[Rfam]
RNA sequence: CGGCGUCCGUGAUGUCCACUACCUACAUUGUUUGAGCCCCGUGAAACCAGCACCGGCUGAGACGCCU
Numbered sequence: 001c002g003g004c005g006u007c008c009g010u011g012a013u014g015u016c017c018a019c020u021a022c023c024u025a026c027a028u029u030g031u032u033u034g035a036g037c038c039c040c041g042u043g044a045a046a047c048c049a050g051c052a053c054c055g056g057c058u059g060a061g062a063c064g065c066c067u
Base pairs, nucleotide, nucleotide: 002066004064005063006062007061